L20-Deltaproteobacteria ribosomal protein leader: a 62-nucleotide RNA sequence from Geobacter sp. SVR. By type it is a cis-regulatory leader. NCBI's taxonomy places the organism under Bacteria, Pseudomonadati, Desulfuromonadia, Geobacterales, Geobacter. The match comes from Rfam's covariance-model search (57 bits).
RNA sequence: AGCCAAGAACCACGAGGACUGUCUCCCCUUGUGGAUCGGGCAAUAUUCCAUGACUGAAGGAG
Numbered sequence: 001a002g003c004c005a006a007g008a009a010c011c012a013c014g015a016g017g018a019c020u021g022u023c024u025c026c027c028c029u030u031g032u033g034g035a036u037c038g039g040g041c042a043a044u045a046u047u048c049c050a051u052g053a054c055u056g057a058a059g060g061a062g
Stems, first nucleotide, its partner, number of pairs: 003040002007037002010034008